A member of the RNA family "Purine riboswitch aptamer" from Sporomusa acidovorans, 102 nucleotides long. Rfam describes the family as follows. Riboswitches are metabolite binding domains within certain messenger RNAs that serve as precision sensors for their corresponding targets. Allosteric rearrangement of mRNA structure is mediated by ligand binding, and this results in modulation of gene expression. The source organism's lineage runs through Bacteria, Bacillati, Selenomonadales, Sporomusa and Sporomusa acidovorans. The match comes from Rfam's covariance-model search (80 bits). Gene Ontology term of the family: purine nucleobase biosynthetic process.
RNA sequence: CAUCAAGAUUCGCAAUAUUCUUGUAUAUCGUUGACAAUAGGGGUCAACUGUUUCUACCAGGUUGCCGUAAAUAACCUGACUAUAAGAAUAGGCUCUCUUUGC
Numbered sequence: 001c002a003u004c005a006a007g008a009u010u011c012g013c014a015a016u017a018u019u020c021u022u023g024u025a026u027a028u029c030g031u032u033g034a035c036a037a038u039a040g041g042g043g044u045c046a047a048c049u050g051u052u053u054c055u056a057c058c059a060g061g062u063u064g065c066c067g068u069a070a071a072u073a074a075c076c077u078g079a080c081u082a083u084a085a086g087a088a089u090a091g092g093c094u095c096u097c098u099u100u101g102c
Stems, first nucleotide, its partner, number of pairs: 018088008030048006058078007